[Rfam]
RNA sequence: UGACCUUUGCAACACUCUGGCUCUUACCGUUCCUUCCCGCCUUCGGGCCUGGAUUGAACUCUGCAUCGUGGUAUAGGCUUAUUUUGCGCAAAGAAGAUCAACCGACCCUCUACUCACCGCGGUAUCCUGGGAGAGGCUCUGCCUCGAUCUAUGGAUACAGUGGUCCAUUUAUUUGGUCAACAU
Number, nucleotide and partner (000 for none) at each position: 001u000002g000003a000004c000005c000006u000007u091008u090009g089010c000011a000012a000013c000014a000015c000016u000017c000018u000019g079020g078021c077022u076023c000024u000025u073026a072027c071028c070029g069030u068031u000032c000033c000034u000035u000036c000037c000038c000039g000040c000041c000042u000043u000044c000045g000046g000047g000048c000049c000050u000051g000052g000053a000054u000055u000056g000057a000058a000059c000060u000061c000062u000063g000064c000065a000066u000067c000068g030069u029070g028071g027072u026073a025074u000075a000076g022077g021078c020079u019080u000081a000082u000083u000084u000085u000086g000087c000088g000089c009090a008091a007092a000093g000094a000095a000096g000097a000098u000099c000100a000101a000102c000103c000104g178105a177106c176107c175108c000109u000110c000111u000112a000113c000114u000115c000116a000117c163118c162119g161120c160121g000122g158123u157124a156125u155126c154127c153128u000129g000130g000131g000132a000133g000134a000135g000136g000137c000138u000139c000140u000141g000142c000143c000144u000145c000146g000147a000148u000149c000150u000151a000152u000153g127154g126155a125156u124157a123158c122159a000160g120161u119162g118163g117164u000165c000166c000167a000168u000169u000170u000171a000172u000173u000174u000175g107176g106177u105178c104179a000180a000181c000182a000183u000
Source information:
A member of the RNA family "Small nucleolar RNA snR80" from Aspergillus calidoustus, 183 nucleotides long. It is annotated as an H/ACA-box small nucleolar RNA. For this family Rfam cites "Genome-wide searching for pseudouridylation guide snoRNAs: analysis of the Saccharomyces cerevisiae genome" (Schattner et al., Nucleic Acids Res, 2004).